Nucleotides: 165
Stems, first nucleotide, its partner, number of pairs: 001016002004013003028165001030163002035158002040152006047144004062140006073132003078127005085111003090105001092103002
Number, partner (000 for none) and nucleotide at each position: 001016u002015a003000u004013a005012c006011c007000g008000c009000g010000a011006g012005g013004u014000u015002u016001a017000g018000u019000u020000u021000g022000a023000a024000g025000g026000a027000a028165g029000c030163c031162g032000g033000a034000c035158g036157c037000a038000a039000a040152u041151u042150u043149g044148c045147g046000a047144g048143c049142u050141g051000a052000u053000g054000a055000a056000c057000a058000a059000g060000a061000a062140c063139a064138u065137c066136a067135u068000a069000u070000g071000a072000g073132g074131c075130g076000u077000a078127g079126g080125c081124u082123g083000a084000a085111g086110g087109u088000g089000a090105g091000c092103u093102g094000g095000c096000a097000c098000a099000a100000g101000a102093c103092g104000a105090c106000g107000a108000a109087a110086c111085c112000a113000u114000g115000u116000g117000a118000u119000c120000u121000a122000a123082c124081g125080g126079c127078c128000a129000c130075c131074g132073u133000a134000a135067a136066u137065g138064a139063u140062g141050c142049a143048g144047c145000a146000g147045u148044g149043c150042a151041a152040a153000g154000a155000u156000a157036g158035u159000u160000c161000a162031u163030g164000c165028u
The family of this 165-nucleotide RNA sequence from Paraglaciecola arctica is "Group II catalytic intron D1-D4-3".